[Rfam]
This 110-nucleotide sequence from Nocardioides zeae belongs to the Rfam family "c-di-AMP riboswitch aptamer (ydaO/yuaA leader)". This family represents a conserved RNA structure found upstream of the ydaO and yuaA genes in Bacillus subtilis and related genes in other bacteria. The source organism's lineage runs through Bacteria, Bacillati, Actinomycetes, Propionibacteriales and Nocardioides.
RNA sequence: GCCGGGGAACCAAUCCCCCUGGGGUGAAUCGCGCGCGAGGCGUGGGCCGAUCGGUCCGCGAGGAGCGCGUGUAGGGCAAUGUCGUGCCCGAACCCGUCAGCUCACCCGGU
Numbered sequence: 001g002c003c004g005g006g007g008a009a010c011c012a013a014u015c016c017c018c019c020u021g022g023g024g025u026g027a028a029u030c031g032c033g034c035g036c037g038a039g040g041c042g043u044g045g046g047c048c049g050a051u052c053g054g055u056c057c058g059c060g061a062g063g064a065g066c067g068c069g070u071g072u073a074g075g076g077c078a079a080u081g082u083c084g085u086g087c088c089c090g091a092a093c094c095c096g097u098c099a100g101c102u103c104a105c106c107c108g109g110u
Base pairs, nucleotide, nucleotide: 001110002109003108004107005106006105011021012020022095023094024093030071031070032069033068034067035066036065074089075088076087077086